[Rfam]
Rfam assigns this 78-nucleotide RNA sequence from Albula goreensis to the family "mir-147 microRNA precursor family". The family's consensus secondary structure was predicted with RNAalifold. Rfam 15.1 lists 757 matches to the family in 593 species. A reference for the family is Kawaji et al. (2008), "Hidden layers of human small RNAs", BMC Genomics.
RNA sequence: UGCCAGUCUAACAGAAUCAUCUCUGCACAGACUCGGCUCUCUGCAUUCAGUGUGCGGAAAUGCUUCUGCUCCACUGCA
Number, nucleotide and partner (000 for none) at each position: 001u000002g000003c000004c076005a075006g074007u073008c000009u000010a070011a000012c068013a067014g066015a065016a064017u000018c062019a061020u060021c000022u058023c057024u056025g055026c054027a053028c052029a051030g000031a000032c050033u049034c000035g000036g000037c000038u000039c000040u000041c000042u000043g000044c000045a000046u000047u000048c000049a033050g032051u029052g028053u027054g026055c025056g024057g023058a022059a000060a020061u019062g018063c000064u016065u015066c014067u013068g012069c000070u010071c000072c000073a007074c006075u005076g004077c000078a000